[Rfam]
RNA sequence: CCAUAUCUGUUGGGGUGCCCCUAUCCGGGCUGAGAUGCACAUGCUGCAAACCCAUUGAACCUGAACCGGUUAGGACCGGCGGAGGGAACAGCUUGCGAACGAUG
Numbered sequence: 001c002c003a004u005a006u007c008u009g010u011u012g013g014g015g016u017g018c019c020c021c022u023a024u025c026c027g028g029g030c031u032g033a034g035a036u037g038c039a040c041a042u043g044c045u046g047c048a049a050a051c052c053c054a055u056u057g058a059a060c061c062u063g064a065a066c067c068g069g070u071u072a073g074g075a076c077c078g079g080c081g082g083a084g085g086g087a088a089c090a091g092c093u094u095g096c097g098a099a100c101g102a103u104g
Base pairs, nucleotide, nucleotide: 007091008090009089010088011054012053013052014051016048017030018029019028020027037047038046039045060085061084062083066079067078068077069076
RNA: TPP riboswitch aptamer (THI element)
Organism: Yoonia rosea